[Rfam]
Nucleotides: 112
Stems, first nucleotide, its partner, number of pairs: 011026006028051003033045002035042002078098007
Number, partner (000 for none) and nucleotide at each position: 001000g002000a003000g004000a005000a006000c007000a008000a009000g010000a011026a012025g013024a014023a015022g016021c017000u018000c019000c020000c021016g022015c023014u024013u025012c026011u027000c028051g029050c030049c031000u032000a033045a034044g035042u036041u037000a038000a039000a040000u041036a042035a043000c044034c045033u046000c047000u048000a049030g050029g051028c052000u053000g054000a055000u056000c057000g058000a059000u060000a061000a062000u063000a064000u065000c066000u067000g068000u069000u070000g071000a072000u073000u074000a075000a076000a077000a078098g079097c080096g081095g082094g083093c084092g085000u086000u087000a088000a089000c090000u091000u092084u093083g094082c095081c096080c097079g098078c099000c100000u101000u102000u103000u104000u105000u106000c107000u108000u109000g110000u111000c112000c

Overview:
The family of this 112-nucleotide RNA sequence from Lactobacillus johnsonii is "Ribosomal protein L20 leader". The base pairs follow the family's consensus structure, which was predicted with CMfinder. Lineage of the source: Bacteria > Bacillati > Bacilli > Lactobacillus > Lactobacillus johnsonii. It is annotated as a cis-regulatory leader. Rfam describes the family as follows. This family is a putative r-protein leader autoregulatory structure found in B. subtilis and other low-GC Gram-positive bacteria. It is located in the 5' untranslated regions of mRNAs encoding initiation factor 3 followed by ribosomal proteins L35 and L20 (infC-rpmI-rplT). A Rho-independent transcription terminator structure that is probably involved in regulation is included at the 3' end.